[Rfam]
RNA: Streptomyces-metK RNA
RNA sequence: GCGAGACACCAGGACCGGUGGACGAGCCAGACCGAUAAACUGUUUCUCGGACGACGCCGGGCGCAGCCUCCGACGCGUCCGCCUAUGAUCAGCCAGCAGCCGCUGCAACCCCAGGGAG
Numbered sequence: 001g002c003g004a005g006a007c008a009c010c011a012g013g014a015c016c017g018g019u020g021g022a023c024g025a026g027c028c029a030g031a032c033c034g035a036u037a038a039a040c041u042g043u044u045u046c047u048c049g050g051a052c053g054a055c056g057c058c059g060g061g062c063g064c065a066g067c068c069u070c071c072g073a074c075g076c077g078u079c080c081g082c083c084u085a086u087g088a089u090c091a092g093c094c095a096g097c098a099g100c101c102g103c104u105g106c107a108a109c110c111c112c113a114g115g116g117a118g
Stems, first nucleotide, its partner, number of pairs: 049080005058072004094105004